Rfam assigns this 174-nucleotide RNA sequence from Tripterygium wilfordii to the family "MIR168 microRNA precursor family". For this family Rfam cites "MicroRNAs in plants" (Reinhart et al., Genes Dev, 2002). The source organism's lineage runs through Eukaryota, Streptophytina, Spermatophyta, Pentapetalae and Tripterygium.
RNA sequence: UUGCCGGCGGUCUCUAAUUCGCUUGGUGCAGGUCGGGACCUGAUUGGCCGAUGACCGGUGGCGGUUGUUUCAGUUCAGGCGGAUCGUUGUACGAAGUUUUUCAUGACAUGAGACUGGAAUGGCUUGUUGGAUCCCGCCUUGCAUCAACUGAAUCGGAGACCGCGAGCGGUGAAU
Number, nucleotide and partner (000 for none) at each position: 001u000002u000003g000004c000005c000006g000007g000008c000009g000010g000011u000012c000013u157014c156015u000016a000017a153018u152019u151020c150021g000022c000023u147024u146025g145026g144027u143028g142029c141030a140031g139032g138033u000034c136035g135036g134037g133038a132039c000040c130041u129042g128043a127044u126045u000046g000047g000048c000049c000050g000051a000052u000053g000054a000055c000056c000057g000058g000059u000060g000061g000062c000063g000064g000065u000066u000067g000068u000069u000070u000071c000072a000073g000074u000075u000076c000077a000078g000079g000080c000081g000082g000083a000084u000085c000086g000087u000088u000089g000090u000091a000092c000093g000094a000095a000096g000097u000098u000099u000100u000101u000102c000103a000104u000105g000106a000107c000108a000109u000110g000111a000112g000113a000114c000115u000116g000117g000118a000119a000120u000121g000122g000123c000124u000125u000126g044127u043128u042129g041130g040131a000132u038133c037134c036135c035136g034137c000138c032139u031140u030141g029142c028143a027144u026145c025146a024147a023148c000149u000150g020151a019152a018153u017154c000155g000156g014157a013158g000159a000160c000161c000162g000163c000164g000165a000166g000167c000168g000169g000170u000171g000172a000173a000174u000